The family of this 237-nucleotide RNA sequence from Sula dactylatra is "Small nucleolar RNA SNORD17". NCBI's taxonomy places the organism under Eukaryota, Opisthokonta, Euteleostomi, Suliformes, Sula. About the family: The snoRNA HBI-43 belongs to the C/D family of snoRNAs, guiding 2'O-ribose methylation at position U3797 of the 28S rRNA. Pseudouridylation in position U3797 is predicted to be guided by the H/ACA snoRNA ACA48. The family's RNA type in Rfam is C/D-box small nucleolar RNA. Rfam 15.1 lists 1,015 matches to the family in 568 species. The literature on the family includes a 2001 paper in EMBO J by Huttenhofer et al., "RNomics: an experimental approach that identifies 201 candidates for novel, small, non-messenger RNAs in mouse".
[Rfam]
Nucleotides: 237
Base pairs, nucleotide, nucleotide: 024234026232027231028230030227031226034223035222039184040183042181043179044178045177046176047175048174050171051168052167053166054165055164056163057162059088060087061086062085063084065082068080069079070078071077093160094159095158096157097156098155106146107145112139113138114137115136116135118134119133120132121131122130123129186220187219188218190216191215192214193213195211196210197209198208199207200206
Number, partner (000 for none) and nucleotide at each position: 001000g002000u003000g004000a005000g006000g007000u008000g009000a010000u011000g012000a013000c014000a015000a016000a017000g018000u019000u020000u021000a022000u023000c024234c025000a026232u027231u028230c029000u030227c031226u032000g033000a034223g035222u036000g037000c038000a039184g040183u041000g042181g043179u044178g045177c046176u047175g048174c049000c050171c051168u052167c053166c054165u055164g056163c057162a058000g059088c060087a061086c062085c063084c064000u065082g066000a067000u068080u069079c070078c071077u072000g073000u074000u075000c076000u077071a078070g079069g080068g081000u082065c083000u084063g085062g086061g087060u088059g089000c090000u091000g092000u093160g094159c095158a096157g097156c098155c099000u100000c101000c102000a103000g104000a105000g106146a107145c108000c109000c110000u111000c112139c113138a114137g115136u116135c117000u118134c119133c120132c121131a122130g123129u124000u125000u126000c127000u128000u129123a130122c131121u132120g133119g134118g135116g136115g137114c138113u139112g140000c141000u142000g143000u144000g145107g146106u147000g148000u149000g150000u151000g152000g153000c154000u155098g156097g157096c158095u159094g160093c161000c162057u163056g164055c165054a166053g167052g168051a169000g170000u171050g172000a173000a174048g175047u176046g177045g178044u179043g180000c181042u182000g183040g184039c185000a186220g187219g188218g189000u190216u191215g192214g193213a194000g195211c196210c197209c198208c199207u200206c201000u202000u203000u204000a205000g206200g207199g208198g209197g210196g211195g212000c213193u214192c215191c216190a217000u218188c219187c220186c221000c222035a223034c224000u225000g226031a227030g228000a229000u230028g231027a232026g233000g234024g235000a236000u237000g